[Rfam]
RNA: SAM riboswitch aptamer (S box leader)
Organism: Alkaliphilus metalliredigens
RNA sequence: GCCUUAUCAAGAGUGAUGGAGGGGAAGGGCCCGAUGAAAUCCGGCAACCAUAGAGUGUAUGGUGCUAAGUCCCUCAGAAUUUUGGUUCUGAAAGAUGAGGA
Numbered sequence: 001g002c003c004u005u006a007u008c009a010a011g012a013g014u015g016a017u018g019g020a021g022g023g024g025a026a027g028g029g030c031c032c033g034a035u036g037a038a039a040u041c042c043g044g045c046a047a048c049c050a051u052a053g054a055g056u057g058u059a060u061g062g063u064g065c066u067a068a069g070u071c072c073c074u075c076a077g078a079a080u081u082u083u084g085g086u087u088c089u090g091a092a093a094g095a096u097g098a099g100g101a
Stems, first nucleotide, its partner, number of pairs: 002100007013042001015041003021032003026074004043066004048062002050058003070093001075090006